[Rfam]
RNA sequence: GGGGGCCGGCCCCCCGAAGUCGGUCUGCAGGGGCAGGCUUCAAACCGCCACAAGCUGCGAGGGUAAAGAGCCCUGGUGGUGAGCGUUGCUGGAAAAGGCGGAAAGCUAUUCCGUCAGGU
Numbered sequence: 001g002g003g004g005g006c007c008g009g010c011c012c013c014c015c016g017a018a019g020u021c022g023g024u025c026u027g028c029a030g031g032g033g034c035a036g037g038c039u040u041c042a043a044a045c046c047g048c049c050a051c052a053a054g055c056u057g058c059g060a061g062g063g064u065a066a067a068g069a070g071c072c073c074u075g076g077u078g079g080u081g082a083g084c085g086u087u088g089c090u091g092g093a094a095a096a097g098g099c100g101g102a103a104a105g106c107u108a109u110u111c112c113g114u115c116a117g118g119u
Stems, first nucleotide, its partner, number of pairs: 001015005016041006023034004046118001048092002051088003054080002057077002061073004097115006
RNA: Group II catalytic intron D1-D4-2
Organism: Lichenicola cladoniae